[Rfam]
RNA sequence: UAGAGAAAAAGGCAAACCUAUCGAAAGGUAGAGACGCAAAACCAUCGGUCUAAGUUCCUUAUGGAAUAUGGCGGCAGGGUUACCUGA
Numbered sequence: 001u002a003g004a005g006a007a008a009a010a011g012g013c014a015a016a017c018c019u020a021u022c023g024a025a026a027g028g029u030a031g032a033g034a035c036g037c038a039a040a041a042c043c044a045u046c047g048g049u050c051u052a053a054g055u056u057c058c059u060u061a062u063g064g065a066a067u068a069u070g071g072c073g074g075c076a077g078g079g080u081u082a083c084c085u086g087a
Stems, first nucleotide, its partner, number of pairs: 012037002018031005040081004045077001047075001048072003055066004
A member of the RNA family "c-di-GMP-I riboswitch aptamer" from Candidatus Magnetomorum sp. HK-1, 87 nucleotides long.